Overview: The record is a 104-nucleotide RNA sequence from Candidatus Amoebophilus asiaticus, which matches "Bacteroidales small SRP" in Rfam. NCBI's taxonomy places the organism under Bacteria, Cytophagia, Cytophagales, Amoebophilaceae, Candidatus Amoebophilus asiaticus. By type it is a non-coding RNA gene. It scores 82 bits against the family's covariance model. For this family Rfam cites "A high-resolution transcriptome map identifies small RNA regulation of metabolism in the gut microbe Bacteroides thetaiotaomicron" (Ryan et al., Nat Commun, 2020).
RNA sequence: UUUACAGUGGCAAACCUGUACGACCAGCUCCUAUUGAAUCCCCUAGGUCUGGAAAGAAGCAAGGGUAGGUAGUUGUAGCGGUGCGAUACAUGGUUUGCUUUUUU
Numbered sequence: 001u002u003u004a005c006a007g008u009g010g011c012a013a014a015c016c017u018g019u020a021c022g023a024c025c026a027g028c029u030c031c032u033a034u035u036g037a038a039u040c041c042c043c044u045a046g047g048u049c050u051g052g053a054a055a056g057a058a059g060c061a062a063g064g065g066u067a068g069g070u071a072g073u074u075g076u077a078g079c080g081g082u083g084c085g086a087u088a089c090a091u092g093g094u095u096u097g098c099u100u101u102u103u104u
Stems, first nucleotide, its partner, number of pairs: 009099007017090004021085002023082002
Its family is annotated with signal recognition particle, plasma membrane targeting and SRP-dependent cotranslational protein targeting to membrane, signal sequence recognition in the Gene Ontology. Its Rfam clan is "SRP clan".